Shown here is a 533-nucleotide part of an RNA from Halococcoides cellulosivorans, a member of the family "Archaeal large subunit ribosomal RNA".
It scores 2839 bits against the family's covariance model.
The organism belongs to Halococcoides, within Archaea.
Its family is annotated with ribosome and structural constituent of ribosome in the Gene Ontology.
RNA sequence: CUGCUACGCCAGUUGGUGAAUGGCUCGGCUCGGAAGCCGAAGAAGGGCGUGCCAAGCUGCGAUAAGCCCGGGGGAGCCGCACGGAGGCUAAGAACCCGGGAUUCCUCAAUGGGAACUCCUCUUCGCAAUUGCUUUGCGCAAUGGGGAACACCGAGAACUGAAACAUCUCAGUAUCGGUAGGAAAAGAAAACGAAUGUGAUGUCGUUAGUAACCGCGAGUGGACGCGACACAGCCCAAACCGAAGCCCUCACGGGCAAUGUGGUGUGUGGGCUGGCACUCAUCGGCCGACCGUCUGCGAGAAGUCCCCUGGAAAGGGGCGUGAGACAGGGUGAUAACCCCGUACCGCAGACCAGUACGUCGUGCGCCAGUUCCGGAGUAGCGGGGGUUGGAAAUCCCUCGUGAACGAGGCAGGCAUCGACUGCCAAGGCUAAACACUCUCCGAGACCGAUAGCGAACAAGUAGCGUGAGCGAACGCUGCAAAGUACCCUCCAACGGGAGGUGAAAUAGAGCCUGAAAUCAACUGGUUAUGGAGC
Numbered sequence: 001c002u003g004c005u006a007c008g009c010c011a012g013u014u015g016g017u018g019a020a021u022g023g024c025u026c027g028g029c030u031c032g033g034a035a036g037c038c039g040a041a042g043a044a045g046g047g048c049g050u051g052c053c054a055a056g057c058u059g060c061g062a063u064a065a066g067c068c069c070g071g072g073g074g075a076g077c078c079g080c081a082c083g084g085a086g087g088c089u090a091a092g093a094a095c096c097c098g099g100g101a102u103u104c105c106u107c108a109a110u111g112g113g114a115a116c117u118c119c120u121c122u123u124c125g126c127a128a129u130u131g132c133u134u135u136g137c138g139c140a141a142u143g144g145g146g147a148a149c150a151c152c153g154a155g156a157a158c159u160g161a162a163a164c165a166u167c168u169c170a171g172u173a174u175c176g177g178u179a180g181g182a183a184a185a186g187a188a189a190a191c192g193a194a195u196g197u198g199a200u201g202u203c204g205u206u207a208g209u210a211a212c213c214g215c216g217a218g219u220g221g222a223c224g225c226g227a228c229a230c231a232g233c234c235c236a237a238a239c240c241g242a243a244g245c246c247c248u249c250a251c252g253g254g255c256a257a258u259g260u261g262g263u264g265u266g267u268g269g270g271c272u273g274g275c276a277c278u279c280a281u282c283g284g285c286c287g288a289c290c291g292u293c294u295g296c297g298a299g300a301a302g303u304c305c306c307c308u309g310g311a312a313a314g315g316g317g318c319g320u321g322a323g324a325c326a327g328g329g330u331g332a333u334a335a336c337c338c339c340g341u342a343c344c345g346c347a348g349a350c351c352a353g354u355a356c357g358u359c360g361u362g363c364g365c366c367a368g369u370u371c372c373g374g375a376g377u378a379g380c381g382g383g384g385g386u387u388g389g390a391a392a393u394c395c396c397u398c399g400u401g402a403a404c405g406a407g408g409c410a411g412g413c414a415u416c417g418a419c420u421g422c423c424a425a426g427g428c429u430a431a432a433c434a435c436u437c438u439c440c441g442a443g444a445c446c447g448a449u450a451g452c453g454a455a456c457a458a459g460u461a462g463c464g465u466g467a468g469c470g471a472a473c474g475c476u477g478c479a480a481a482g483u484a485c486c487c488u489c490c491a492a493c494g495g496g497a498g499g500u501g502a503a504a505u506a507g508a509g510c511c512u513g514a515a516a517u518c519a520a521c522u523g524g525u526u527a528u529g530g531a532g533c
Base pairs, nucleotide, nucleotide: 008525009524010523011522012521013520014519015518016517022511023475024474027446028445029443030442031441032440033439034438035436036435045106046105047104048061049060050059067100068099069098070097071096072095076088077087078086111120112119113118128142129141130140131139132138149180150178151177152176153175154174160167161166190197191196201228202227203226204225205224211219212218231429232428233427234426239262240261241260244255245254246253247252272367273366274365275364282360283359284358285357296345297344302318304317305316306315307314321325327339328338329337379400380399381398382397383396384395385394407423408422409421410420411419462469463468